[Rfam]
A member of the RNA family "Small nucleolar RNA SNORD60" from Sarcophilus harrisii, 85 nucleotides long. Taxonomically the source falls in Sarcophilus (Eukaryota, Metazoa, Chordata, Amniota). Pairs were carried over by alignment from the consensus structure, which was predicted with PFOLD. Its Rfam clan is "SNORD60 clan". The literature on the family includes a 2002 paper in Mol Cell Biol by Galardi et al., "Purified box C/D snoRNPs are able to reproduce site-specific 2'-O-methylation of target RNA in vitro". Rfam classes the family as a C/D-box small nucleolar RNA.
RNA sequence: AGCCGGUGAUGAAAUCUACAUUUCUGACACCUCGUAUGAGUAUUGCCAAUGUCAAUACCUGAUUAUGUUUUAAGAUCUGAGGCUG
Numbered sequence: 001a002g003c004c005g006g007u008g009a010u011g012a013a014a015u016c017u018a019c020a021u022u023u024c025u026g027a028c029a030c031c032u033c034g035u036a037u038g039a040g041u042a043u044u045g046c047c048a049a050u051g052u053c054a055a056u057a058c059c060u061g062a063u064u065a066u067g068u069u070u071u072a073a074g075a076u077c078u079g080a081g082g083c084u085g
Stems, first nucleotide, its partner, number of pairs: 001084004042056004046051001